[Rfam]
RNA sequence: CCUGCUGUACGACCAGCAGUAGCCUAGGAAGACAUGCGUCACUGGCAACGGUGGGGUGUGAAGCUCUUCUGACAAUGUAGCCCCCGGAUGUUUCGGGCAGGUCUUUUCCGUGAGGGAUCGACUUGGAGACUCCUAGCAGCGAUGGGGUUGAGGAG
Dot-bracket structure: .((((((......))))))........((((((((((.((((((....)))))).)))))....))))).............((((((...))))))((((......((....))......))))...(((((..........))))).......

The record is a 155-nucleotide RNA from Paraburkholderia phytofirmans, which matches "Group II catalytic intron D1-D4-7" in Rfam. From the family's description: Group II introns are found in rRNA, tRNA and mRNA of organelles in fungi, plants and protists, and also in mRNA in bacteria. Rfam links the family to the GO term Group II intron splicing.